[Rfam]
RNA sequence: CUCUGUGCUGAAAAAGGGCUCAGGGCAAAAAGGAG
Numbered sequence: 001c002u003c004u005g006u007g008c009u010g011a012a013a014a015a016g017g018g019c020u021c022a023g024g025g026c027a028a029a030a031a032g033g034a035g
Stems, first nucleotide, its partner, number of pairs: 001025005007019003